[Rfam]
RNA: MIR396 microRNA precursor family
RNA sequence: CUCUGUGAUCUUCCACAGCUUUCUUGAACUGCAUCUGCAAAGGGAUGCGCCUUCUACUUGCAUGAACACGUGCAGUUCAAUAAAGCUGUGGGAAACUGCAGAGA
Numbered sequence: 001c002u003c004u005g006u007g008a009u010c011u012u013c014c015a016c017a018g019c020u021u022u023c024u025u026g027a028a029c030u031g032c033a034u035c036u037g038c039a040a041a042g043g044g045a046u047g048c049g050c051c052u053u054c055u056a057c058u059u060g061c062a063u064g065a066a067c068a069c070g071u072g073c074a075g076u077u078c079a080a081u082a083a084a085g086c087u088g089u090g091g092g093a094a095a096c097u098g099c100a101g102a103g104a
Stems, first nucleotide, its partner, number of pairs: 003101005013091003017087006024080004029075005